[Rfam]
RNA sequence: CCGGCUCCGGUUCACCUCGAAGAAUCCCCAACGAGGACCCGGCGGCC
Numbered sequence: 001c002c003g004g005c006u007c008c009g010g011u012u013c014a015c016c017u018c019g020a021a022g023a024a025u026c027c028c029c030a031a032c033g034a035g036g037a038c039c040c041g042g043c044g045g046c047c
Stems, first nucleotide, its partner, number of pairs: 003047003007042004015036005022029001

Rfam assigns this 47-nucleotide RNA sequence from Saccharothrix sp. to the family "L31-Actinobacteria ribosomal protein leader". Taxonomically the source falls in Saccharothrix (Bacteria, Actinomycetes, Pseudonocardiales, Pseudonocardiaceae). Pairs were carried over by alignment from the consensus structure, which is taken from published work. A search with the family's covariance model found it, with a score of 50 bits. The family's RNA type in Rfam is cis-regulatory leader.